This 55-nucleotide RNA belongs to the Rfam family "nhaA-I RNA". Rfam classes the family as a riboswitch. Acidobacteria, Alphaproteobacteria, Betaproteobacteria and Gammaproteobacteria, Verrucomicrobia, cand. division NC10.
RNA sequence: GGGUCCGCCGCCGAAUUGCUGCGGAGGUUCACACGGAAGGUCGGGCCGCCUGCCG
Dot-bracket structure: ....((((.((......)).)))).........(((..(((......)))..)))